Shown here is a 96-nucleotide RNA from Blautia wexlerae, a member of the family "Purine riboswitch aptamer". From the family's description: Riboswitches are metabolite binding domains within certain messenger RNAs that serve as precision sensors for their corresponding targets. Allosteric rearrangement of mRNA structure is mediated by ligand binding, and this results in modulation of gene expression. A class of riboswitches that selectively recognises guanine and becomes saturated at concentrations as low as 5 nM. In Bacillus subtilis, this mRNA motif is located on at least five separate transcriptional units that together encode 17 genes that are mostly involved in purine transport and purine nucleotide biosynthesis. It has also been shown that some members of this family are specific for adenine instead. The family's consensus secondary structure is taken from published work.
RNA sequence: UAUAAACAAUAUAAGUAAACUUAUAUAUGUCCAUAAUCGGUUGGACGUUUCUACCAACUACCGUAAUAGUUGUCUAUAAGUUCUCUCCCCAGGGAG
Numbered sequence: 001u002a003u004a005a006a007c008a009a010u011a012u013a014a015g016u017a018a019a020c021u022u023a024u025a026u027a028u029g030u031c032c033a034u035a036a037u038c039g040g041u042u043g044g045a046c047g048u049u050u051c052u053a054c055c056a057a058c059u060a061c062c063g064u065a066a067u068a069g070u071u072g073u074c075u076a077u078a079a080g081u082u083c084u085c086u087c088c089c090c091a092g093g094g095a096g
Base pairs, nucleotide, nucleotide: 018082019081020080021079022078023077024076025075029046030045031044032043033042055072056071057070058069059068060067

Rfam links the family to the GO term purine nucleobase biosynthetic process.